Shown here is a 96-nucleotide sequence from Elaeis guineensis, a member of the family "Small nucleolar RNA Z43". Its family is annotated with nucleolus and RNA processing in the Gene Ontology. On this family, see Chen et al., Nucleic Acids Res 2003: "The high diversity of snoRNAs in plants: identification and comparative study of 120 snoRNA genes from Oryza sativa". The family's consensus secondary structure was predicted with PFOLD.
RNA sequence: GGACGAUGACGAUGAACUGGUUUUAGGUCUCGUUCGUCGUAACGGCGUGACGCCUUGCCGACCAUCCUGAUAUAUCACCACCCAUAUUCCGAGUCC
Numbered sequence: 001g002g003a004c005g006a007u008g009a010c011g012a013u014g015a016a017c018u019g020g021u022u023u024u025a026g027g028u029c030u031c032g033u034u035c036g037u038c039g040u041a042a043c044g045g046c047g048u049g050a051c052g053c054c055u056u057g058c059c060g061a062c063c064a065u066c067c068u069g070a071u072a073u074a075u076c077a078c079c080a081c082c083c084a085u086a087u088u089c090c091g092a093g094u095c096c
Base pairs, nucleotide, nucleotide: 001096002095003094004093047056